RNA sequence: GUGAAGUUAAUCACAAACAAACACAUACCCCUUUGUUUGACCGUGAAAAAUUUCUCCCAUCCCCUUUGUUCGUUAUUAUAUAAGUAAAAAACCUGCAGCCGCAGCUGCAGGUUUUUUA
Number, nucleotide and partner (000 for none) at each position: 001g000002u000003g054004a053005a052006g051007u050008u049009a000010a000011u046012c045013a044014c043015a000016a000017a000018c039019a038020a037021a036022c035023a034024c000025a000026u000027a000028c000029c000030c000031c000032u000033u000034u023035g022036u021037u020038u019039g018040a000041c000042c000043g014044u013045g012046a011047a000048a000049a008050a007051u006052u005053u004054c003055u000056c000057c000058c000059a000060u000061c000062c000063c000064c000065u000066u000067u000068g000069u000070u084071c000072g000073u000074u080075a000076u000077u000078a000079u000080a074081u000082a000083a000084g070085u000086a000087a000088a115089a114090a113091a112092c111093c110094u109095g108096c107097a106098g105099c000100c000101g000102c000103a000104g000105c098106u097107g096108c095109a094110g093111g092112u091113u090114u089115u088116u000117u000118a000